[Rfam]
RNA sequence: AGGUGACGUCUGCUAACCUUUAUCAAUGCAGGCACUCGGCUGCGCUGUGGGAUUGAUUCAACAGCCUUAGACUUGUAUUGUCAAGGGCGUGGUGUGAGGGAGGGUUCGAUGCCCU
Numbered sequence: 001a002g003g004u005g006a007c008g009u010c011u012g013c014u015a016a017c018c019u020u021u022a023u024c025a026a027u028g029c030a031g032g033c034a035c036u037c038g039g040c041u042g043c044g045c046u047g048u049g050g051g052a053u054u055g056a057u058u059c060a061a062c063a064g065c066c067u068u069a070g071a072c073u074u075g076u077a078u079u080g081u082c083a084a085g086g087g088c089g090u091g092g093u094g095u096g097a098g099g100g101a102g103g104g105u106u107c108g109a110u111g112c113c114c115u
Stems, first nucleotide, its partner, number of pairs: 001019004008033006035098004039093008049067003053064003070082003101115005
This 115-nucleotide RNA sequence from Ammoniphilus oxalaticus belongs to the Rfam family "epsC RNA". Rfam 15.1 lists 450 matches to the family in 334 species.